Description
This 142-nucleotide RNA from Metabacillus sediminilitoris belongs to the Rfam family "Group II catalytic intron D1-D4-4". The family has 90 seed sequences and 840 matches in Rfam 15.1. The literature on the family includes a 2003 paper in Crit Rev Biochem Mol Biol by Lehmann and Schmidt, "Group II introns: structure and catalytic versatility of large natural ribozymes". Lineage of the source: Bacteria > Bacillota > Bacilli > Caryophanales > Metabacillus. Gene Ontology term of the family: Group II intron splicing. It scores 74 bits against the family's covariance model. The pairing is the family consensus, mapped onto this sequence. Group II introns are found in rRNA, tRNA and mRNA of organelles in fungi, plants and protists, and also in mRNA in bacteria.
RNA sequence: UAAUUGGUGAAAGUCUAAUCUUAGUAAGUACCAAGACGCUCAGUAGCUUACAGGCAGCUCGUGAAAAAAUUCUAAGGUUGUAAGCCCUGUGACAAAGUAGCUCUCUAGUAGAGUGCAAGCAACCUUACAGGUUGGAACAUAA
Numbered sequence: 001u002a003a004u005u006g007g008u009g010a011a012a013g014u015c016u017a018a019u020c021u022u023a024g025u026a027a028g029u030a031c032c033a034a035g036a037c038g039c040u041c042a043g044u045a046g047c048u049u050a051c052a053g054g055c056a057g058c059u060c061g062u063g064a065a066a067a068a069a070u071u072c073u074a075a076g077g078u079u080g081u082a083a084g085c086c087c088u089g090u091g092a093c094a095a096a097g098u099a100g101c102u103c104u105c106u107a108g109u110a111g112a113g114u115g116c117a118a119g120c121a122a123c124c125u126u127a128c129a130g131g132u133u134g135g136a137a138c139a140u141a142a
Stems, first nucleotide, its partner, number of pairs: 020043002023040002050090005055080005064071002097116001101113004120134002